[Rfam]
RNA sequence: GUCGGGAUGGCGGAAUUGGCAGACGCGCACGUUUGAGGGGCGUGUGGGGUAACCCGUGCGGGUUCAAGUCCCGCUCUCGACA
Numbered sequence: 001g002u003c004g005g006g007a008u009g010g011c012g013g014a015a016u017u018g019g020c021a022g023a024c025g026c027g028c029a030c031g032u033u034u035g036a037g038g039g040g041c042g043u044g045u046g047g048g049g050u051a052a053c054c055c056g057u058g059c060g061g062g063u064u065c066a067a068g069u070c071c072c073g074c075u076c077u078c079g080a081c082a
Stems, first nucleotide, its partner, number of pairs: 001081007010026003028044005058074005

Background
This 82-nucleotide RNA sequence from Sulfoacidibacillus thermotolerans belongs to the Rfam family "tRNA". About the family: Transfer RNA (tRNA) molecules are approximately 80 nucleotides in length. Their secondary structure includes four short double-helical elements and three loops (D, anti-codon, and T loops). The family's consensus secondary structure is taken from published work. It scores 47 bits against the family's covariance model. The source organism's lineage runs through Bacteria, Bacillati, Bacillota, Alicyclobacillaceae and Sulfoacidibacillus.